This 102-nucleotide RNA sequence from Anaerobranca californiensis belongs to the Rfam family "Purine riboswitch aptamer".
A search with the family's covariance model found it, with a score of 92 bits.
Rfam 15.1 lists 4,097 matches to the family in 1,411 species.
RNA sequence: AAAAGUGAAUAAGUAAUCACUCGUAUAAGUGUGGUAAUAUGGUCCACAUGUCUCUACCGGAUAACCGUAAAUUAUCCGACUACGGGUGUUGAAGUUGUUGUA
Numbered sequence: 001a002a003a004a005g006u007g008a009a010u011a012a013g014u015a016a017u018c019a020c021u022c023g024u025a026u027a028a029g030u031g032u033g034g035u036a037a038u039a040u041g042g043u044c045c046a047c048a049u050g051u052c053u054c055u056a057c058c059g060g061a062u063a064a065c066c067g068u069a070a071a072u073u074a075u076c077c078g079a080c081u082a083c084g085g086g087u088g089u090u091g092a093a094g095u096u097g098u099u100g101u102a
Stems, first nucleotide, its partner, number of pairs: 018088008029049006058078007